[Rfam]
RNA sequence: GAAUGAUAUGAUGACUUUGAAUUCCCUAUUGGUUUGAUUGCCUAGAUGAUGGCAACUAAUGUAUUAGCUCUAGCUGAUCAUUC
Numbered sequence: 001g002a003a004u005g006a007u008a009u010g011a012u013g014a015c016u017u018u019g020a021a022u023u024c025c026c027u028a029u030u031g032g033u034u035u036g037a038u039u040g041c042c043u044a045g046a047u048g049a050u051g052g053c054a055a056c057u058a059a060u061g062u063a064u065u066a067g068c069u070c071u072a073g074c075u076g077a078u079c080a081u082u083c
Base pairs, nucleotide, nucleotide: 002082003081004080005079036056039054040053041052042051
This 83-nucleotide sequence from Morus notabilis belongs to the Rfam family "Small nucleolar RNA Z102/R77". The match comes from Rfam's covariance-model search (82 bits). By type it is a C/D-box small nucleolar RNA. NCBI's taxonomy places the organism under Eukaryota, Gunneridae, fabids, Rosales, Morus.